Record summary: This 59-nucleotide RNA from Phascolarctos cinereus belongs to the Rfam family "mir-7398 microRNA precursor family". The match comes from Rfam's covariance-model search (57 bits). Gene Ontology terms of the family: miRNA-mediated post-transcriptional gene silencing and RISC complex.
RNA sequence: AGUGUAGAGAGUGGUGAGGAUGCUGUGCUCUAUCAGGUAAUUCACCCUUCUCUCACUAA
Numbered sequence: 001a002g003u004g005u006a007g008a009g010a011g012u013g014g015u016g017a018g019g020a021u022g023c024u025g026u027g028c029u030c031u032a033u034c035a036g037g038u039a040a041u042u043c044a045c046c047c048u049u050c051u052c053u054c055a056c057u058a059a
Base pairs, nucleotide, nucleotide: 002056003055004054006053007052008051009050010049011048013047014046018042022038023037024036